[Rfam]
RNA sequence: CCCGGCGGGUGAGCUGAGGCCCCGGCCCGAACCGACCCUGACGUACUUCCCCAACGCCAGGUGCGGAUCGGGCCGGGACCUGAGUCCCACCCGACAUCCGG
Numbered sequence: 001c002c003c004g005g006c007g008g009g010u011g012a013g014c015u016g017a018g019g020c021c022c023c024g025g026c027c028c029g030a031a032c033c034g035a036c037c038c039u040g041a042c043g044u045a046c047u048u049c050c051c052c053a054a055c056g057c058c059a060g061g062u063g064c065g066g067a068u069c070g071g072g073c074c075g076g077g078a079c080c081u082g083a084g085u086c087c088c089a090c091c092c093g094a095c096a097u098c099c100g101g
Base pairs, nucleotide, nucleotide: 011087013085014084015083018080019079021077022076023075024074025073026072027071028070029069030068032066033065034064037061038060039059040058042056043055044054
The record is a 101-nucleotide sequence from Gordonia effusa, which matches "mraW RNA" in Rfam. It is annotated as a cis-regulatory element. The source organism's lineage runs through Bacteria, Bacillati, Actinomycetes, Gordonia and Gordonia effusa. The family's consensus secondary structure is taken from published work.